[Rfam]
RNA sequence: CUCUUCUUCUGGUGCAAGGCUUCCUUCUGUUUCUGUGAGUCUGACGUCCUGCACAUUGUACAUGCAGGACGUCAGACUCACAGAAACAGAAGGAAGCCCUGCGCCAGAAUAACAGGACC
Numbered sequence: 001c002u003c004u005u006c007u008u009c010u011g012g013u014g015c016a017a018g019g020c021u022u023c024c025u026u027c028u029g030u031u032u033c034u035g036u037g038a039g040u041c042u043g044a045c046g047u048c049c050u051g052c053a054c055a056u057u058g059u060a061c062a063u064g065c066a067g068g069a070c071g072u073c074a075g076a077c078u079c080a081c082a083g084a085a086a087c088a089g090a091a092g093g094a095a096g097c098c099c100u101g102c103g104c105c106a107g108a109a110u111a112a113c114a115g116g117a118c119c
Base pairs, nucleotide, nucleotide: 010106011105012104013103014102015101016100018098019097021095022094023093024092025091026090027089028088029087030086031085032084033083034082035081036080037079038078039077040076041075042074043073044072045071046070047069048068049067050066051065052064053063
Shown here is a 119-nucleotide RNA from Microcaecilia unicolor, a member of the family "mraW RNA".